This 62-nucleotide sequence from Prolemur simus belongs to the Rfam family "Gag/pol translational readthrough site". Lineage of the source: Eukaryota > Eumetazoa > Tetrapoda > Euarchontoglires > Prolemur. Rfam links the family to the GO term viral translational readthrough. The match comes from Rfam's covariance-model search (69 bits). Rfam 15.1 lists 3,368 matches to the family in 94 species. The family's RNA type in Rfam is cis-regulatory element. The base pairs follow the family's consensus structure, which is taken from published work.
[Rfam]
RNA sequence: UAGGGAAGACGGGGCUCGGCCCCCCUCCCCGAGCCCAGGGUAACUUUAGAUGUGGAGGGGAG
Numbered sequence: 001u002a003g004g005g006a007a008g009a010c011g012g013g014g015c016u017c018g019g020c021c022c023c024c025c026u027c028c029c030c031g032a033g034c035c036c037a038g039g040g041u042a043a044c045u046u047u048a049g050a051u052g053u054g055g056a057g058g059g060g061a062g
Stems, first nucleotide, its partner, number of pairs: 008041001010039001012036004016031001018029002022060006